[Rfam]
RNA sequence: UAGAAUAAUGUAGGUAAGGGAAGUCGGCAAAUUGGAUCCGUAACUUCGGAAUAAGGAUUGGCUCUGAGGAGCGGGGCGUGUCGGGCUUGGUCGGGAAGCGGGUCUGGCUGACGUGCCGGGCCUGGGCGAGGUGAACGGUCGGCGUUCUCGCGCCGGUCCCGGGAUCCGAGCUCGGUCCCGUGCCUUGGCCUCCCGCGGAUCUUCCUUGCUGCGAGGCUUCCGUGGCGGCGCGAGCCGUCGUGGUCGUCCUCUUCGGCCGCCAUUCAACGCUCAGCUCAGAACUGGCACGGACUAGGGGAAUCCGACUGUCUAAUUAAAACAAAGCAUUGCGAUGGCCCUCGCGGGUGUUGACGCAAUGUGAUUUCUGCCCAGUGCUCUGAAUGUCAACGUGAAGAAAUUCAAGCAAGCGCGGGUAAACGGCGGGAGUAACUAUGACUCUCUUAAGGUAGCCAAAUGCCUCGUCAUCUAAUUAGUGACGCGCAUGAAUGGAUUAACGAGAUUCCCACUGUCCCUAUCUACUGUCUAGCGAAACCACUGCCAAGGGAACGGGCUUGGAAAA
Numbered sequence: 001u002a003g004a005a006u007a008a009u010g011u012a013g014g015u016a017a018g019g020g021a022a023g024u025c026g027g028c029a030a031a032u033u034g035g036a037u038c039c040g041u042a043a044c045u046u047c048g049g050a051a052u053a054a055g056g057a058u059u060g061g062c063u064c065u066g067a068g069g070a071g072c073g074g075g076g077c078g079u080g081u082c083g084g085g086c087u088u089g090g091u092c093g094g095g096a097a098g099c100g101g102g103u104c105u106g107g108c109u110g111a112c113g114u115g116c117c118g119g120g121c122c123u124g125g126g127c128g129a130g131g132u133g134a135a136c137g138g139u140c141g142g143c144g145u146u147c148u149c150g151c152g153c154c155g156g157u158c159c160c161g162g163g164a165u166c167c168g169a170g171c172u173c174g175g176u177c178c179c180g181u182g183c184c185u186u187g188g189c190c191u192c193c194c195g196c197g198g199a200u201c202u203u204c205c206u207u208g209c210u211g212c213g214a215g216g217c218u219u220c221c222g223u224g225g226c227g228g229c230g231c232g233a234g235c236c237g238u239c240g241u242g243g244u245c246g247u248c249c250u251c252u253u254c255g256g257c258c259g260c261c262a263u264u265c266a267a268c269g270c271u272c273a274g275c276u277c278a279g280a281a282c283u284g285g286c287a288c289g290g291a292c293u294a295g296g297g298g299a300a301u302c303c304g305a306c307u308g309u310c311u312a313a314u315u316a317a318a319a320c321a322a323a324g325c326a327u328u329g330c331g332a333u334g335g336c337c338c339u340c341g342c343g344g345g346u347g348u349u350g351a352c353g354c355a356a357u358g359u360g361a362u363u364u365c366u367g368c369c370c371a372g373u374g375c376u377c378u379g380a381a382u383g384u385c386a387a388c389g390u391g392a393a394g395a396a397a398u399u400c401a402a403g404c405a406a407g408c409g410c411g412g413g414u415a416a417a418c419g420g421c422g423g424g425a426g427u428a429a430c431u432a433u434g435a436c437u438c439u440c441u442u443a444a445g446g447u448a449g450c451c452a453a454a455u456g457c458c459u460c461g462u463c464a465u466c467u468a469a470u471u472a473g474u475g476a477c478g479c480g481c482a483u484g485a486a487u488g489g490a491u492u493a494a495c496g497a498g499a500u501u502c503c504c505a506c507u508g509u510c511c512c513u514a515u516c517u518a519c520u521g522u523c524u525a526g527c528g529a530a531a532c533c534a535c536u537g538c539c540a541a542g543g544g545a546a547c548g549g550g551c552u553u554g555g556a557a558a559a
Stems, first nucleotide, its partner, number of pairs: 001525004010519007018511003035059005044049001060283002063280006069272005075261004080257005085209002089205002098196004106190006113183004118179003122175006130167002284288001296504007303496002307321003324359008335346004363490003367421003372418002374414004379410001382409003390401004422440006441445001461477005538555005
Eukaryotic large subunit ribosomal RNA: a 559-nucleotide part of an RNA from Camponotus floridanus.
NCBI's taxonomy places the organism under Eukaryota, Metazoa, Allotriocarida, Camponotini, Camponotus.
A reference for the family is Yusupov et al. (2001), "Crystal structure of the ribosome at 5.5 A resolution", Science.
The family's consensus secondary structure is taken from published work.